[Rfam]
RNA: 6S / SsrS RNA
Organism: Bacillus sp. SG-1
RNA sequence: UACAAGCUGCGUUGUACGUAAUGAUAAUAAAGUUUUAACCUUUAAACUGUAAUAGGGAGUUUUACAUCGAAGCCGGAAUGUCAGGCCGCCAUGGAUAGCGGAAGACAAGAACGUUUCUGCAAACACCCACUUUGAGGAGUGGUGGUUUAAAACUUUCUUAGACGAUUUACGGCAAAUGCGGCCUACAU
Numbered sequence: 001u002a003c004a005a006g007c008u009g010c011g012u013u014g015u016a017c018g019u020a021a022u023g024a025u026a027a028u029a030a031a032g033u034u035u036u037a038a039c040c041u042u043u044a045a046a047c048u049g050u051a052a053u054a055g056g057g058a059g060u061u062u063u064a065c066a067u068c069g070a071a072g073c074c075g076g077a078a079u080g081u082c083a084g085g086c087c088g089c090c091a092u093g094g095a096u097a098g099c100g101g102a103a104g105a106c107a108a109g110a111a112c113g114u115u116u117c118u119g120c121a122a123a124c125a126c127c128c129a130c131u132u133u134g135a136g137g138a139g140u141g142g143u144g145g146u147u148u149a150a151a152a153c154u155u156u157c158u159u160a161g162a163c164g165a166u167u168u169a170c171g172g173c174a175a176a177u178g179c180g181g182c183c184u185a186c187a188u
Base pairs, nucleotide, nucleotide: 004184006182007181008180009179010178011177012175013174014173015172017171018170019169031154032153033152034151036149037148038147039145040144055128056127057126059124060123061122062121066118069117070116071115072114073113080106081105086101087100088099089098